About this RNA: A member of the RNA family "Small nucleolar RNA snoR26" from Camphora micrantha, 90 nucleotides long. Rfam links the family to the GO terms nucleolus and RNA processing.
[Rfam]
RNA sequence: CAAGCAUCUAUGAUGAUUAACUUCCUACAUCAUCCUUGCACUUUGAUUGUCAGUGAAGAAGCUAAUGGGGAGAUAAUGGCUGAGAUGCCC
Numbered sequence: 001c002a003a004g005c006a007u008c009u010a011u012g013a014u015g016a017u018u019a020a021c022u023u024c025c026u027a028c029a030u031c032a033u034c035c036u037u038g039c040a041c042u043u044u045g046a047u048u049g050u051c052a053g054u055g056a057a058g059a060a061g062c063u064a065a066u067g068g069g070g071a072g073a074u075a076a077u078g079g080c081u082g083a084g085a086u087g088c089c090c
Base pairs, nucleotide, nucleotide: 004088005087006086007085008084

Notes:
A reference for the family is Brown et al. (2001), "Multiple snoRNA gene clusters from Arabidopsis", RNA. Lineage of the source: Eukaryota > Streptophyta > Embryophyta > Magnoliidae > Camphora. The family's RNA type in Rfam is C/D-box small nucleolar RNA.